[Rfam]
RNA: Bacterial small signal recognition particle RNA
Organism: Pyrinomonas methylaliphatogenes
RNA sequence: CCCCGGGCUCCGCACAACGUGGCGUCGGUGAACCCCGCCAGGCCGGGAACGGAGCAACGGUAGCCGCGCGCCGCGUGUGUUGCGGGUCGGUCCGGGGCCU
Numbered sequence: 001c002c003c004c005g006g007g008c009u010c011c012g013c014a015c016a017a018c019g020u021g022g023c024g025u026c027g028g029u030g031a032a033c034c035c036c037g038c039c040a041g042g043c044c045g046g047g048a049a050c051g052g053a054g055c056a057a058c059g060g061u062a063g064c065c066g067c068g069c070g071c072c073g074c075g076u077g078u079g080u081u082g083c084g085g086g087u088c089g090g091u092c093c094g095g096g097g098c099c100u
Stems, first nucleotide, its partner, number of pairs: 004094005009086006015077001017076006026066004035060003043052003